[Rfam]
RNA: TPP riboswitch aptamer (THI element)
Organism: Microvirga vignae
RNA sequence: CCUCGUUCCGAGGGGAGCCCUGUGAGGGGCUGAGAGUCGGCUGAUCCGCCGUGACCCUUGAACCUGAUCCGGGUCAUACCGGCGGAGGGACUGGAACUAUCGAGCACG
Numbered sequence: 001c002c003u004c005g006u007u008c009c010g011a012g013g014g015g016a017g018c019c020c021u022g023u024g025a026g027g028g029g030c031u032g033a034g035a036g037u038c039g040g041c042u043g044a045u046c047c048g049c050c051g052u053g054a055c056c057c058u059u060g061a062a063c064c065u066g067a068u069c070c071g072g073g074u075c076a077u078a079c080c081g082g083c084g085g086a087g088g089g090a091c092u093g094g095a096a097c098u099a100u101c102g103a104g105c106a107c108g
Base pairs, nucleotide, nucleotide: 006096007095008094009093010092011058012057013056014055016052017030018029019028020027021026038051039050040049041048063088064087065086069082070081071080072079